The family of this 187-nucleotide RNA sequence from Candidatus Symbiopectobacterium sp. Dall1.0 is "SraG RNA". Its family is annotated with mRNA binding and sRNA-mediated gene silencing in the Gene Ontology. Rfam describes the family as follows. This RNA was discovered in E. coli during a large scale screen. Evidence was found for specific cleavage of this RNA. The organism belongs to Symbiopectobacterium, within Bacteria.
RNA sequence: CAUCUCACUACAUCCUCGCGACUAAUGACAACCUUCAUGUCAGGCUGGAACCCGUCCAGAAAGAGACAUAAAGUUUCUCAUUAGCCGCGCGAACCUCUGUAGCGAACGGCGACGACAAAGUCGGUAAUACAUUACUCUGUUUUGCAAGCACUUCCUAGAAGAAAGGGGCCCUAUGAGGCCCCUUCCC
Numbered sequence: 001c002a003u004c005u006c007a008c009u010a011c012a013u014c015c016u017c018g019c020g021a022c023u024a025a026u027g028a029c030a031a032c033c034u035u036c037a038u039g040u041c042a043g044g045c046u047g048g049a050a051c052c053c054g055u056c057c058a059g060a061a062a063g064a065g066a067c068a069u070a071a072a073g074u075u076u077c078u079c080a081u082u083a084g085c086c087g088c089g090c091g092a093a094c095c096u097c098u099g100u101a102g103c104g105a106a107c108g109g110c111g112a113c114g115a116c117a118a119a120g121u122c123g124g125u126a127a128u129a130c131a132u133u134a135c136u137c138u139g140u141u142u143u144g145c146a147a148g149c150a151c152u153u154c155c156u157a158g159a160a161g162a163a164a165g166g167g168g169c170c171c172u173a174u175g176a177g178g179c180c181c182c183u184u185c186c187c
Base pairs, nucleotide, nucleotide: 001108003106006104010100011099012098017091018090019089020088022084023083024082025081026080027079028078112140113139165182166181167180168179169178170177